RNA sequence: AAAGGAGGUAUCCAAAGGGAUAGCAUGAUCCAAAAUCCAAAUAUGCGGGAGGUGUUCGUUAGUGCAGAGAUGGGAUCAAUGCGAUCCCUUUGGAUGCCUCCUU
Numbered sequence: 001a002a003a004g005g006a007g008g009u010a011u012c013c014a015a016a017g018g019g020a021u022a023g024c025a026u027g028a029u030c031c032a033a034a035a036u037c038c039a040a041a042u043a044u045g046c047g048g049g050a051g052g053u054g055u056u057c058g059u060u061a062g063u064g065c066a067g068a069g070a071u072g073g074g075a076u077c078a079a080u081g082c083g084a085u086c087c088c089u090u091u092g093g094a095u096g097c098c099u100c101c102u103u
Stems, first nucleotide, its partner, number of pairs: 002103005008097014023082003026078006
RNA: mir-393 microRNA precursor family
Organism: Eucalyptus grandis